[Rfam]
RNA sequence: GUCGGUCUUCGGUAGUGACCCCCCGGCCGCACGAGAAGUGCCGGUGGGUUUCGAUCGACGACCGCC
Numbered sequence: 001g002u003c004g005g006u007c008u009u010c011g012g013u014a015g016u017g018a019c020c021c022c023c024c025g026g027c028c029g030c031a032c033g034a035g036a037a038g039u040g041c042c043g044g045u046g047g048g049u050u051u052c053g054a055u056c057g058a059c060g061a062c063c064g065c066c
Stems, first nucleotide, its partner, number of pairs: 001066001003064005009058005017050005023044004030040003
Annotation
Rfam assigns this 66-nucleotide sequence from Rhodococcus sp. SMB37 to the family "Actino-pnp RNA". It scores 61 bits against the family's covariance model.